[Rfam]
RNA sequence: UCAAACUAAAACAACGAAAGCCCUACCUCUCUUCCAUCCUUGCGGCUCCGAAGACCGCGCCAGUGUGAUUUAGAUCCAUUUUACAGUCA
Numbered sequence: 001u002c003a004a005a006c007u008a009a010a011a012c013a014a015c016g017a018a019a020g021c022c023c024u025a026c027c028u029c030u031c032u033u034c035c036a037u038c039c040u041u042g043c044g045g046c047u048c049c050g051a052a053g054a055c056c057g058c059g060c061c062a063g064u065g066u067g068a069u070u071u072a073g074a075u076c077c078a079u080u081u082u083a084c085a086g087u088c089a
Stems, first nucleotide, its partner, number of pairs: 035067002039063002041059005047053001

This 89-nucleotide sequence from Paenibacillus selenitireducens belongs to the Rfam family "BsrC". The match comes from Rfam's covariance-model search (75 bits). NCBI's taxonomy places the organism under Bacteria, Bacillota, Bacilli, Caryophanales, Paenibacillus. Rfam describes the family as follows. The 301 nucleotide sequence from Kouji Nakamura has been trimmed to a highly conserved ~85 nucleotide long core to form this family. It is annotated as a small RNA. A reference for the family is Saito et al. (2008), "Novel small RNA-encoding genes in the intergenic regions of Bacillus subtilis", Gene. The family's consensus secondary structure was predicted with CMfinder.